[Rfam]
The family of this 103-nucleotide RNA from Janibacter sp. HTCC2649 is "mraW RNA". Taxonomically the source falls in Janibacter (Bacteria, Bacillati, Actinomycetota, Micrococcales).
RNA sequence: GAUCCACCCCGGCUCCCGGCCUCCAGCCGACUGGGCUCCCGACACGACUUCCCCCGUGCCGGGCCCCGGACGGAUGGGGACCAGGAGCCGGGGAACGGAUCAC
Numbered sequence: 001g002a003u004c005c006a007c008c009c010c011g012g013c014u015c016c017c018g019g020c021c022u023c024c025a026g027c028c029g030a031c032u033g034g035g036c037u038c039c040c041g042a043c044a045c046g047a048c049u050u051c052c053c054c055c056g057u058g059c060c061g062g063g064c065c066c067c068g069g070a071c072g073g074a075u076g077g078g079g080a081c082c083a084g085g086a087g088c089c090g091g092g093g094a095a096c097g098g099a100u101c102a103c
Stems, first nucleotide, its partner, number of pairs: 010090007018082002021079005027073003031069005038063004043058003